[Rfam]
RNA sequence: UCGCCCGUCAUUGGGGAGUAGCCGCCUCGCACCGCGAGGGCUUGCGUCAACACACUUGGCCUGUCCGGCCAUGGCGCAGGCAGCUGUCACAGCCUGGCAAGACCUUUGACUGCGUGUCCUCCGGUAUGGCCAGGGAGGCGCGCAGUCAUCCGUCUUUCCUGGCCUCGGACU
Numbered sequence: 001u002c003g004c005c006c007g008u009c010a011u012u013g014g015g016g017a018g019u020a021g022c023c024g025c026c027u028c029g030c031a032c033c034g035c036g037a038g039g040g041c042u043u044g045c046g047u048c049a050a051c052a053c054a055c056u057u058g059g060c061c062u063g064u065c066c067g068g069c070c071a072u073g074g075c076g077c078a079g080g081c082a083g084c085u086g087u088c089a090c091a092g093c094c095u096g097g098c099a100a101g102a103c104c105u106u107u108g109a110c111u112g113c114g115u116g117u118c119c120u121c122c123g124g125u126a127u128g129g130c131c132a133g134g135g136a137g138g139c140g141c142g143c144a145g146u147c148a149u150c151c152g153u154c155u156u157u158c159c160u161g162g163c164c165u166c167g168g169a170c171u
Base pairs, nucleotide, nucleotide: 026038027037028036040081041080042079043078044077045076046075047074048073049072057071058070059069060068061067086170087169088168
The family of this 171-nucleotide sequence from Ramlibacter sp. Leaf400 is "Manganese Mn2+ riboswitch aptamer (yybP-ykoY)". A search with the family's covariance model found it, with a score of 92 bits. This RNA was originally discovered in E. coli during a large scale screen and was named SraF. The family was later found to exist upstream of related families of protein genes in many bacteria, including the the yybP and ykoK genes in B. subtilis. Pairs were carried over by alignment from the consensus structure. The literature on the family includes a 2001 paper in Curr Biol by Argaman et al., "Novel small RNA-encoding genes in the intergenic regions of Escherichia coli".